This 95-nucleotide RNA from Serpentinicella alkaliphila belongs to the Rfam family "Glycine riboswitch aptamer".
The source organism's lineage runs through Bacteria, Bacillati, Bacillota, Clostridia and Serpentinicella.
Rfam links the family to the GO term glycine biosynthetic process.
The pairing is the family consensus, mapped onto this sequence.
[Rfam]
RNA sequence: GGACACUACCCUGGAGAGAUCCAUUUCCGAUGGGCAUCGAAGAAGUAACCUUAUAAAAAAGGGAAGCUUUCAGAUAAAAGGACAGGGAGUAAAUA
Dot-bracket structure: ......(.(((((......((((.......)))).(((((..(((...((..........))....))))).))).......))))).)......